[Rfam]
RNA sequence: UUGAUUUAAAUCAUUGUGGGUUUACACUUUGAAAAUUGAAGCUACACAAAAUGGUGGGACAUACAUUGAUUUCAUCCAA
Numbered sequence: 001u002u003g004a005u006u007u008a009a010a011u012c013a014u015u016g017u018g019g020g021u022u023u024a025c026a027c028u029u030u031g032a033a034a035a036u037u038g039a040a041g042c043u044a045c046a047c048a049a050a051a052u053g054g055u056g057g058g059a060c061a062u063a064c065a066u067u068g069a070u071u072u073c074a075u076c077c078a079a
Stems, first nucleotide, its partner, number of pairs: 001079003006074001008072006015065004022057003025053002028050004
RNA: MIR5269 microRNA precursor family